About this RNA
Shown here is an 81-nucleotide RNA from Cnephaeus nilssonii, a member of the family "mir-574 microRNA precursor family". The family has 6 seed sequences and 4,084 matches in Rfam 15.1. The family is grouped with related families in Rfam's "mir-574 microRNA precursor clan". The source organism's lineage runs through Eukaryota, Opisthokonta, Eumetazoa, Sarcopterygii and Cnephaeus. A reference for the family is Nielsen et al. (2010), "MicroRNA identity and abundance in porcine skeletal muscles determined by deep sequencing", Anim Genet. It scores 86 bits against the family's covariance model.
[Rfam]
RNA sequence: AGGUCUGAAGAGAAAAGCAGGGUCUGAUCUGUAGCCUCCAUGGCAGCUGUUGAUCAGCACUUGCCUCUCUCUUUCACUCCA
Numbered sequence: 001a002g003g004u005c006u007g008a009a010g011a012g013a014a015a016a017g018c019a020g021g022g023u024c025u026g027a028u029c030u031g032u033a034g035c036c037u038c039c040a041u042g043g044c045a046g047c048u049g050u051u052g053a054u055c056a057g058c059a060c061u062u063g064c065c066u067c068u069c070u071c072u073u074u075c076a077c078u079c080c081a
Stems, first nucleotide, its partner, number of pairs: 008073006015066001017064004024057006032049004